Rfam assigns this 156-nucleotide RNA from Populus deltoides to the family "MIR2912 microRNA precursor family". The match comes from Rfam's covariance-model search (110 bits). Rfam 15.1 lists 15,051 matches to the family in 15 species.
[Rfam]
RNA sequence: UCUAGAACUCGAGAUAUGGACUGAACACCGAACAAUGUCUGGGCUGCAUGACUGAUUCAGACUUCUCUUUUGUUGCUAAGAUUUGAAUUUGGAAAUGAUAAUUUUGAAUCUUAGACUCUUAAUGAAUGUUUUAGGCCUAUGCCUUAACUUUUCAUC
Numbered sequence: 001u002c003u004a005g006a007a008c009u010c011g012a013g014a015u016a017u018g019g020a021c022u023g024a025a026c027a028c029c030g031a032a033c034a035a036u037g038u039c040u041g042g043g044c045u046g047c048a049u050g051a052c053u054g055a056u057u058c059a060g061a062c063u064u065c066u067c068u069u070u071u072g073u074u075g076c077u078a079a080g081a082u083u084u085g086a087a088u089u090u091g092g093a094a095a096u097g098a099u100a101a102u103u104u105u106g107a108a109u110c111u112u113a114g115a116c117u118c119u120u121a122a123u124g125a126a127u128g129u130u131u132u133a134g135g136c137c138u139a140u141g142c143c144u145u146a147a148c149u150u151u152u153c154a155u156c
Base pairs, nucleotide, nucleotide: 003154005152006151007150009146011145012144013143015141016140017139018138019137021134022133023132024131025130027129028128035123036122041119042118043117045115048112050110051109054105055104060099063097068092069091072088073087074086